[Rfam]
ilvB-OMG RNA: a 211-nucleotide sequence from Luminiphilus syltensis.
NCBI's taxonomy places the organism under Bacteria, Cellvibrionales, Halieaceae, Luminiphilus, Luminiphilus syltensis.
The base pairs follow the family's consensus structure, which is taken from published work.
It is one of the family's seed sequences.
RNA sequence: GUCACGCGAACGGCAACGGCUAUCGGUGAGUACCCUCAUCCACUGGCCUACCCCCAUAACGGGAUAGUUAUGAGGGCUGUUUGCGGGUUCCGUCAGGUGCGCCGCUCAGGCGUUACUCGGGCUCGACACUGCGUUACCUCGCAGGGCGACCGAUACACGGGUUUCGUGAUCGAUGUUCCGGUGUGGUUACCCCGGCGCGAUCCGGCCAGUG
Numbered sequence: 001g002u003c004a005c006g007c008g009a010a011c012g013g014c015a016a017c018g019g020c021u022a023u024c025g026g027u028g029a030g031u032a033c034c035c036u037c038a039u040c041c042a043c044u045g046g047c048c049u050a051c052c053c054c055c056a057u058a059a060c061g062g063g064a065u066a067g068u069u070a071u072g073a074g075g076g077c078u079g080u081u082u083g084c085g086g087g088u089u090c091c092g093u094c095a096g097g098u099g100c101g102c103c104g105c106u107c108a109g110g111c112g113u114u115a116c117u118c119g120g121g122c123u124c125g126a127c128a129c130u131g132c133g134u135u136a137c138c139u140c141g142c143a144g145g146g147c148g149a150c151c152g153a154u155a156c157a158c159g160g161g162u163u164u165c166g167u168g169a170u171c172g173a174u175g176u177u178c179c180g181g182u183g184u185g186g187u188u189a190c191c192c193c194g195g196c197g198c199g200a201u202c203c204g205g206c207c208a209g210u211g
Stems, first nucleotide, its partner, number of pairs: 018048005025040006051076003055072006085124004090120003097114001099113005142180001144178004149174001151172004156168004192205004